Source information: Glycine riboswitch aptamer: a 166-nucleotide RNA sequence from Nicoletella semolina. From the family's description: This family represents the bacterial glycine riboswitch. Glycine riboswitches usually consist of two metabolite-binding aptamers domains with similar structures in tandem. The aptamers cooperatively bind glycine to regulate the expression of downstream genes. In Bacillus subtilis, this riboswitch is found upstream of the gcvT operon which controls glycine degradation. NCBI's taxonomy places the organism under Bacteria, Pseudomonadati, Gammaproteobacteria, Pasteurellales, Nicoletella.

RNA sequence: CCCUUGGAGAGAGCCACUCUACUUAGGAAAGUAGAAAAUGGACGCCGAAGGCGAAAGUACCGCAAACGAAACUAUACCUAUUUAAGGCACGUCAAAAAAUUAAAUUGGCAAGAUAAAGGUCGUAUUGCGUAAAAAUGUAUGAAACGCUCAGGCAAAAGGACAGGGG
Dot-bracket structure: ((((((.......(((......................)))..(((((..(((...((((............................................................................))))....))))).))).......))))))